RAGATH-18 RNA: a 65-nucleotide RNA from Thermoflavimicrobium dichotomicum. The base pairs follow the family's consensus structure, which is taken from published work. Lineage of the source: Bacteria > Bacillati > Bacillota > Bacilli > Thermoflavimicrobium. About the family: Actinobacteria, Firmicutes, Fusobacteria, Thermotogae (1 example).
RNA sequence: CCUUCGGAGUGCUUUACCAAACAGGAGUAGCUGUUUUGGCGAAACUGGGCACGAUGAACAAGGAA
Numbered sequence: 001c002c003u004u005c006g007g008a009g010u011g012c013u014u015u016a017c018c019a020a021a022c023a024g025g026a027g028u029a030g031c032u033g034u035u036u037u038g039g040c041g042a043a044a045c046u047g048g049g050c051a052c053g054a055u056g057a058a059c060a061a062g063g064a065a
Stems, first nucleotide, its partner, number of pairs: 001063004009052005022047003030040003